[Rfam]
RNA sequence: CUGCAGCCAAUUAAGCUGACCAUGCUGCCCUCCCCAUGGCGCCCAGUGUGCAGUGGCUGCAAACAACAGCCUUCUAGGUAAUGUAUGCAGCCUGUUGCUUGAAUAGGCUGCCCUAAGGCACCCAGGAGACAGCC
Numbered sequence: 001c002u003g004c005a006g007c008c009a010a011u012u013a014a015g016c017u018g019a020c021c022a023u024g025c026u027g028c029c030c031u032c033c034c035c036a037u038g039g040c041g042c043c044c045a046g047u048g049u050g051c052a053g054u055g056g057c058u059g060c061a062a063a064c065a066a067c068a069g070c071c072u073u074c075u076a077g078g079u080a081a082u083g084u085a086u087g088c089a090g091c092c093u094g095u096u097g098c099u100u101g102a103a104u105a106g107g108c109u110g111c112c113c114u115a116a117g118g119c120a121c122c123c124a125g126g127a128g129a130c131a132g133c134c
Stems, first nucleotide, its partner, number of pairs: 002052004019047002026041003077122003088110006
The record is a 134-nucleotide sequence from Erinaceus europaeus, which matches "Small nucleolar RNA SNORA70" in Rfam.
Gene Ontology terms of the family: nucleolus and RNA processing.
Lineage of the source: Eukaryota > Sarcopterygii > Eutheria > Erinaceidae > Erinaceus.
snoRNA U70 seems to be exclusive to mammals and is a member of the H/ACA class of snoRNA which contain H (ANANNA) and ACA box motifs. H/ACA box snoRNAs are involved in the conversion of uridines to pseudouridines (5-ribosyluracil) a constituent of structural RNAs (transfer, ribosomal, small nuclear, and small nucleolar).
It scores 120 bits against the family's covariance model.